RNA: Insertion sequence IS1222 ribosomal frameshifting element
Organism: Klebsiella pneumoniae
RNA sequence: AGCGUUGCAGGUGGCCCUGAACCGAAAGUUCUGACGACAGACCAGAAGCGGGAAGCUGUGGAAGUCAUGUGUGAGGCAACGGGUCUGUCGCAACGUCACGCCAGUAGGCUGGCAGGUC
Numbered sequence: 001a002g003c004g005u006u007g008c009a010g011g012u013g014g015c016c017c018u019g020a021a022c023c024g025a026a027a028g029u030u031c032u033g034a035c036g037a038c039a040g041a042c043c044a045g046a047a048g049c050g051g052g053a054a055g056c057u058g059u060g061g062a063a064g065u066c067a068u069g070u071g072u073g074a075g076g077c078a079a080c081g082g083g084u085c086u087g088u089c090g091c092a093a094c095g096u097c098a099c100g101c102c103a104g105u106a107g108g109c110u111g112g113c114a115g116g117u118c
Stems, first nucleotide, its partner, number of pairs: 035090009048059004065078001